RNA sequence: CAUCGGUAGCUUCGCAACUGUGUACUAUGAACCCCGCCAGGACCGGAAGGUAGCAACGGUAGUAGAUACAAAGUGUGCCGAAGAUGUGCUGAUGAAG
Numbered sequence: 001c002a003u004c005g006g007u008a009g010c011u012u013c014g015c016a017a018c019u020g021u022g023u024a025c026u027a028u029g030a031a032c033c034c035c036g037c038c039a040g041g042a043c044c045g046g047a048a049g050g051u052a053g054c055a056a057c058g059g060u061a062g063u064a065g066a067u068a069c070a071a072a073g074u075g076u077g078c079c080g081a082a083g084a085u086g087u088g089c090u091g092a093u094g095a096a097g
Base pairs, nucleotide, nucleotide: 004091005090006089007088008087010083011082012081013080014079015075017074018073019072021070022069025065026064027063028062034059035058036057042051043050044049
A member of the RNA family "Bacterial small signal recognition particle RNA" from Moraxella cuniculi, 97 nucleotides long. The signal recognition particle (SRP) is a universally conserved ribonucleoprotein involved in the co-translational targeting of proteins to membranes. Clan: SRP clan. Pairs were carried over by alignment from the consensus structure, which is taken from published work. Lineage of the source: Bacteria > Pseudomonadota > Gammaproteobacteria > Moraxella > Moraxella cuniculi. By type it is a non-coding RNA gene.